[Rfam]
RNA sequence: CGCCCGGACGGAUCCCGUGGGGGGAAUCCGCACCGGGACAAAGGAAAGCGCCCCGACUGCCGGC
Numbered sequence: 001c002g003c004c005c006g007g008a009c010g011g012a013u014c015c016c017g018u019g020g021g022g023g024g025a026a027u028c029c030g031c032a033c034c035g036g037g038a039c040a041a042a043g044g045a046a047a048g049c050g051c052c053c054c055g056a057c058u059g060c061c062g063g064c
Base pairs, nucleotide, nucleotide: 001062002061003037004036005035006034007033009030010029011028012027013026014024015023016022043052044051
RNA: Streptomyces RNA 2736
Organism: Streptomyces sp. CB01635